RNA sequence: GCAGCAUGUUGUAGCAGUGCUGGGGUUUCAAAGCGGCAUUUGCCAUGGUGGCUUUAAGAAAUACGCAAUGCCCUUGGAAAUCCCAAAUGUGCACAACUCAU
Number, nucleotide and partner (000 for none) at each position: 001g000002c000003a000004g000005c000006a000007u000008g097009u096010u095011g094012u093013a000014g092015c091016a090017g000018u000019g000020c000021u085022g084023g083024g082025g081026u080027u079028u078029c077030a000031a075032a074033g073034c000035g072036g071037c070038a069039u068040u000041u067042g066043c065044c000045a000046u000047g000048g000049u000050g000051g000052c000053u000054u000055u000056a000057a000058g000059a000060a000061a000062u000063a000064c000065g043066c042067a041068a039069u038070g037071c036072c035073c033074u032075u031076g000077g029078a028079a027080a026081u025082c024083c023084c022085a021086a000087a000088u000089g000090u016091g015092c014093a012094c011095a010096a009097c008098u000099c000100a000101u000
Source information: The family of this 101-nucleotide sequence from Cryptotermes secundus is "mir-2788 microRNA precursor family". A search with the family's covariance model found it, with a score of 74 bits. Rfam 15.1 lists 89 matches to the family in 88 species. Gene Ontology terms of the family: miRNA-mediated post-transcriptional gene silencing and RISC complex.